[Rfam]
RNA sequence: UGGAAGUGAUGAAACAGAGAUGAGGGGGUGUGGAUGGAGUGUGUGUGAGUGGUGGGGUGGGAUGGGAUGGGGUGGGAUGGGUGUGAGGCUGUGAGGGGAGGGGGCUCUAUGGGGGCUCUGACAGCAGUGCUGAGAACGGAGUGCAUCUGAGGCGUGUUGGGCACCGUGGGGCCCCUGUGCAACACUGCCUGUGAUUAAAGCCCCAGAGCAGCCUGCCAGGAGAGCCCCAGGACCCCAAAUCUCUGCCAGGGUCACCCAGGGUCACCGGUGCUCCUGGGCUCUGAUCCGG
Numbered sequence: 001u002g003g004a005a006g007u008g009a010u011g012a013a014a015c016a017g018a019g020a021u022g023a024g025g026g027g028g029u030g031u032g033g034a035u036g037g038a039g040u041g042u043g044u045g046u047g048a049g050u051g052g053u054g055g056g057g058u059g060g061g062a063u064g065g066g067a068u069g070g071g072g073u074g075g076g077a078u079g080g081g082u083g084u085g086a087g088g089c090u091g092u093g094a095g096g097g098g099a100g101g102g103g104g105c106u107c108u109a110u111g112g113g114g115g116c117u118c119u120g121a122c123a124g125c126a127g128u129g130c131u132g133a134g135a136a137c138g139g140a141g142u143g144c145a146u147c148u149g150a151g152g153c154g155u156g157u158u159g160g161g162c163a164c165c166g167u168g169g170g171g172c173c174c175c176u177g178u179g180c181a182a183c184a185c186u187g188c189c190u191g192u193g194a195u196u197a198a199a200g201c202c203c204c205a206g207a208g209c210a211g212c213c214u215g216c217c218a219g220g221a222g223a224g225c226c227c228c229a230g231g232a233c234c235c236c237a238a239a240u241c242u243c244u245g246c247c248a249g250g251g252u253c254a255c256c257c258a259g260g261g262u263c264a265c266c267g268g269u270g271c272u273c274c275u276g277g278g279c280u281c282u283g284a285u286c287c288g289g
Stems, first nucleotide, its partner, number of pairs: 001288004155184005160175002164171002

The family of this 289-nucleotide sequence from Pardalotus punctatus is "Small Cajal body-specific RNA 7". Rfam 15.1 lists 570 matches to the family in 531 species. Pairs were carried over by alignment from the consensus structure.